[Rfam]
RNA sequence: GUGUGGGAUGAUGGCAUAGCAUCUUUCGAAACUGACCCUGGAAUUUCAACUUUGUAUUUUACUCGUCACAC
Numbered sequence: 001g002u003g004u005g006g007g008a009u010g011a012u013g014g015c016a017u018a019g020c021a022u023c024u025u026u027c028g029a030a031a032c033u034g035a036c037c038c039u040g041g042a043a044u045u046u047c048a049a050c051u052u053u054g055u056a057u058u059u060u061a062c063u064c065g066u067c068a069c070a071c
Stems, first nucleotide, its partner, number of pairs: 001071006
Small nucleolar RNA SNORD2: a 71-nucleotide sequence from Salvelinus namaycush. The literature on the family includes a 2004 paper in Gene by Zhou et al., "Identification of a novel box C/D snoRNA from mouse nucleolar cDNA library". It scores 46 bits against the family's covariance model. Rfam 15.1 lists 1,116 matches to the family in 660 species.